RNA sequence: UGGUGACCUGAGGCUCCCCGCUGUCUCUCUGUCCCAGGCCUGUGUUGGCCGUGGGCACAGGCUGAGUCGCAGUAGAGUCUGCGGGGUCCUGACCC
Numbered sequence: 001u002g003g004u005g006a007c008c009u010g011a012g013g014c015u016c017c018c019c020g021c022u023g024u025c026u027c028u029c030u031g032u033c034c035c036a037g038g039c040c041u042g043u044g045u046u047g048g049c050c051g052u053g054g055g056c057a058c059a060g061g062c063u064g065a066g067u068c069g070c071a072g073u074a075g076a077g078u079c080u081g082c083g084g085g086g087u088c089c090u091g092a093c094c095c
Stems, first nucleotide, its partner, number of pairs: 002094003005088005011080006020073005027066003031062003038056006